[Rfam]
RNA: L31-Actinobacteria ribosomal protein leader
RNA sequence: CUGGUUCCGGUUCACGUUCCCACCCGGCAAGGGUGUGACACACACAUCCUGCUGCAGUGCGCCGCACAGGGGGACGACCCGGCGACC
Numbered sequence: 001c002u003g004g005u006u007c008c009g010g011u012u013c014a015c016g017u018u019c020c021c022a023c024c025c026g027g028c029a030a031g032g033g034u035g036u037g038a039c040a041c042a043c044a045c046a047u048c049c050u051g052c053u054g055c056a057g058u059g060c061g062c063c064g065c066a067c068a069g070g071g072g073g074a075c076g077a078c079c080c081g082g083c084g085a086c087c
Base pairs, nucleotide, nucleotide: 003087004086005085007082008081009080010079015076016075017074018073019072020071021070
Dot-bracket structure: ..(((.((((....(((((((................................................)))))))..))))..)))